[Rfam]
RNA sequence: CCCUUAUCUUUUAAAAGUUUCAAAUUGAUCCCUUAUCUUUAUUUUAGGUUUCAAAUUGGUCCCUUCCGUCAAUUUUUUUACUAUUACUGUUAAAAUUGGACACGUGUCAUCUGUCCAAGUGUGCCACAUGUCCAAAUUUAACGGAAAUAGUUAAAAAAUUGACGGAAGGGACCAACUUGAAACCUAAAAUAAAGAUAAGGGACCAACUUGAAACUUUUAAAAGAUAAGGGA
Numbered sequence: 001c002c003c004u005u006a007u008c009u010u011u012u013a014a015a016a017g018u019u020u021c022a023a024a025u026u027g028a029u030c031c032c033u034u035a036u037c038u039u040u041a042u043u044u045u046a047g048g049u050u051u052c053a054a055a056u057u058g059g060u061c062c063c064u065u066c067c068g069u070c071a072a073u074u075u076u077u078u079u080a081c082u083a084u085u086a087c088u089g090u091u092a093a094a095a096u097u098g099g100a101c102a103c104g105u106g107u108c109a110u111c112u113g114u115c116c117a118a119g120u121g122u123g124c125c126a127c128a129u130g131u132c133c134a135a136a137u138u139u140a141a142c143g144g145a146a147a148u149a150g151u152u153a154a155a156a157a158a159u160u161g162a163c164g165g166a167a168g169g170g171a172c173c174a175a176c177u178u179g180a181a182a183c184c185u186a187a188a189a190u191a192a193a194g195a196u197a198a199g200g201g202a203c204c205a206a207c208u209u210g211a212a213a214c215u216u217u218u219a220a221a222a223g224a225u226a227a228g229g230g231a
Stems, first nucleotide, its partner, number of pairs: 002229007023208001025206001027204001029202001031200013045186003
The family of this 231-nucleotide sequence from Trifolium subterraneum is "MIR2655 microRNA precursor family".
Rfam links the family to the GO terms RISC complex and miRNA-mediated post-transcriptional gene silencing.
The source organism's lineage runs through Eukaryota, eudicotyledons, Fabales, Fabaceae and Trifolium.
The base pairs follow the family's consensus structure, which was predicted with RNAalifold.